RNA sequence: GCUCGGGUGGUGGAAUUGGUAGACACGUUGGACUUAAAAUCCAAUGGGAAGAAAUUCCCGUACGGGUUCAAGUCCCGUCCCGAGUA
Numbered sequence: 001g002c003u004c005g006g007g008u009g010g011u012g013g014a015a016u017u018g019g020u021a022g023a024c025a026c027g028u029u030g031g032a033c034u035u036a037a038a039a040u041c042c043a044a045u046g047g048g049a050a051g052a053a054a055u056u057c058c059c060g061u062a063c064g065g066g067u068u069c070a071a072g073u074c075c076c077g078u079c080c081c082g083a084g085u086a
Stems, first nucleotide, its partner, number of pairs: 001085007010026003028044005062078005
RNA: tRNA